[Rfam]
RNA sequence: AUUUCACCAAUUCAUGUAGUGAAUUCUCCCGCGAUGUUUUCGGCUGAAGAGGACCCUAGUUGGUCCUAAAAAGCCUGAGGUAGAGGAGUUUUAGUCGGUAGGUCCGAGGACUUCUCCCUCGGGAAUCCGACACUACCCAGUCGUACGGACGGCUGGGUGUCUUCUGAAGAUUUCCCCUCUUCCACGAAA
Numbered sequence: 001a002u003u004u005c006a007c008c009a010a011u012u013c014a015u016g017u018a019g020u021g022a023a024u025u026c027u028c029c030c031g032c033g034a035u036g037u038u039u040u041c042g043g044c045u046g047a048a049g050a051g052g053a054c055c056c057u058a059g060u061u062g063g064u065c066c067u068a069a070a071a072a073g074c075c076u077g078a079g080g081u082a083g084a085g086g087a088g089u090u091u092u093a094g095u096c097g098g099u100a101g102g103u104c105c106g107a108g109g110a111c112u113u114c115u116c117c118c119u120c121g122g123g124a125a126u127c128c129g130a131c132a133c134u135a136c137c138c139a140g141u142c143g144u145a146c147g148g149a150c151g152g153c154u155g156g157g158u159g160u161c162u163u164c165u166g167a168a169g170a171u172u173u174c175c176c177c178u179c180u181u182c183c184a185c186g187a188a189a
Stems, first nucleotide, its partner, number of pairs: 060188002063185002079183002082180002085176002094131005103123006109116002133159001135158005
RNA: R2 RNA element
Organism: Agrilus planipennis